[Rfam]
RNA sequence: AUCUCGCCACAACGGCUUCCUGACGUGGCGGCAGAACCCUAAUGGAGCA
Numbered sequence: 001a002u003c004u005c006g007c008c009a010c011a012a013c014g015g016c017u018u019c020c021u022g023a024c025g026u027g028g029c030g031g032c033a034g035a036a037c038c039c040u041a042a043u044g045g046a047g048c049a
Base pairs, nucleotide, nucleotide: 004031005030006029007028008027009026010025013022014021015048016047017046019045020044